[Rfam]
Rfam assigns this 145-nucleotide sequence from Cicer arietinum to the family "small nucleolar RNA snoR137". The literature on the family includes a 2009 paper in Nucleic Acids Res by Chen and Wu, "Mining small RNA sequencing data: a new approach to identify small nucleolar RNAs in Arabidopsis". Lineage of the source: Eukaryota > Pentapetalae > Hologalegina > Cicereae > Cicer.
Nucleotides: 145
Stems, first nucleotide, its partner, number of pairs: 003066006014054002082139006095125003099121005
Number, partner (000 for none) and nucleotide at each position: 001000g002000u003066u004065g005064c006063u007062u008061c009000u010000g011000u012000a013000a014054u015053g016000a017000u018000u019000a020000u021000a022000u023000u024000g025000c026000u027000g028000a029000g030000u031000g032000u033000c034000c035000u036000g037000u038000u039000u040000a041000u042000g043000a044000u045000u046000g047000g048000u049000c050000a051000u052000u053015c054014a055000u056000a057000u058000u059000u060000g061008g062007a063006a064005g065004c066003a067000u068000a069000u070000a071000a072000u073000u074000g075000u076000g077000u078000u079000a080000u081000u082139g083138c084137c085136a086135g087134u088000u089000u090000u091000u092000a093000a094000c095125a096124g097123c098000a099121u100120g101119a102118u103117g104000u105000g106000u107000a108000u109000u110000u111000a112000u113000u114000u115000u116000a117103c118102a119101u120100u121099g122000u123097g124096u125095u126000a127000c128000c129000u130000g131000u132000c133000u134087g135086c136085u137084g138083g139082u140000a141000a142000a143000u144000u145000u